Record summary: This 142-nucleotide sequence from Flagellimonas ochracea belongs to the Rfam family "SAM riboswitch aptamer (S box leader)". Taxonomically the source falls in Flagellimonas (Bacteria, Pseudomonadati, Bacteroidota, Flavobacteriaceae). Gene Ontology term of the family: regulation of gene expression.
[Rfam]
RNA sequence: UUGUUAUCAAGAAAGGUGGAGGGAUUGGACCCUGUGAAACCUUAGCAACCCUCGGUUUAUCCUGAUGCACAUCAGGAUCUGAGAAGGUGCUACAUUCUACCCUUGUUUCCGGUUUUGGAAAAUUUAGUGGGAAGGAUAACGU
Numbered sequence: 001u002u003g004u005u006a007u008c009a010a011g012a013a014a015g016g017u018g019g020a021g022g023g024a025u026u027g028g029a030c031c032c033u034g035u036g037a038a039a040c041c042u043u044a045g046c047a048a049c050c051c052u053c054g055g056u057u058u059a060u061c062c063u064g065a066u067g068c069a070c071a072u073c074a075g076g077a078u079c080u081g082a083g084a085a086g087g088u089g090c091u092a093c094a095u096u097c098u099a100c101c102c103u104u105g106u107u108u109c110c111g112g113u114u115u116u117g118g119a120a121a122a123u124u125u126a127g128u129g130g131g132a133a134g135g136a137u138a139a140c141g142u
Base pairs, nucleotide, nucleotide: 002141003140004139005138006137007136008135013043014042015041016040017039021032022031023030026099027098028097029096044091045090046089047088049087050086051083052082053081054080095134100131101130102129